Small nucleolar RNA SNORA32: a 121-nucleotide RNA sequence from Nannospalax galili.
Rfam's curators write: ACA32 is a member of the H/ACA class of snoRNA that guide the sites of modification of uridines to pseudouridines.
It scores 129 bits against the family's covariance model.
RNA sequence: UGGUCAUUACCAAGGCUUUAAGAAUGCAGUUUCUCAUUUGCUGUGGACAUGACCAUAAAACAUACUCCCACCAGGUAUUCUGUGUGCUACUUUGCUAGCAGUCAACCUGCUGGGAACAUCU
Numbered sequence: 001u002g003g004u005c006a007u008u009a010c011c012a013a014g015g016c017u018u019u020a021a022g023a024a025u026g027c028a029g030u031u032u033c034u035c036a037u038u039u040g041c042u043g044u045g046g047a048c049a050u051g052a053c054c055a056u057a058a059a060a061c062a063u064a065c066u067c068c069c070a071c072c073a074g075g076u077a078u079u080c081u082g083u084g085u086g087c088u089a090c091u092u093u094g095c096u097a098g099c100a101g102u103c104a105a106c107c108u109g110c111u112g113g114g115a116a117c118a119u120c121u
Stems, first nucleotide, its partner, number of pairs: 003053005010046003026041004067114004074107003085100003